[Rfam]
RNA sequence: UUUGAAAAAGGCAAACCUUUCGAAAGAAAGGGACGCAAAGUCACCGGCCUAAGGGAUCUGACCUAGGGUAGCGGGACCGCCGGAA
Number, nucleotide and partner (000 for none) at each position: 001u085002u000003u082004g081005a000006a000007a000008a000009a000010g000011g036012c035013a000014a000015a000016c031017c030018u029019u028020u027021c026022g000023a000024a000025a000026g021027a020028a019029a018030g017031g016032g000033a000034c071035g012036c011037a000038a000039a000040g077041u076042c075043a000044c074045c073046g072047g069048c068049c067050u000051a000052a000053g000054g000055g000056a000057u000058c000059u000060g000061a000062c000063c000064u000065a000066g000067g049068g048069u047070a000071g034072c046073g045074g044075g042076a041077c040078c000079g000080c000081c004082g003083g000084a000085a001

Rfam assigns this 85-nucleotide RNA from Seongchinamella unica to the family "c-di-GMP-I-GGC riboswitch aptamer". The source organism's lineage runs through Bacteria, Pseudomonadati, Gammaproteobacteria, Halieaceae and Seongchinamella. On this family, see Smith et al., Biochemistry 2010: "Structural and biochemical determinants of ligand binding by the c-di-GMP riboswitch ". Rfam links the family to the GO term cyclic-di-GMP binding. The family has 40 seed sequences and 1,298 matches in Rfam 15.1. The match comes from Rfam's covariance-model search (71 bits).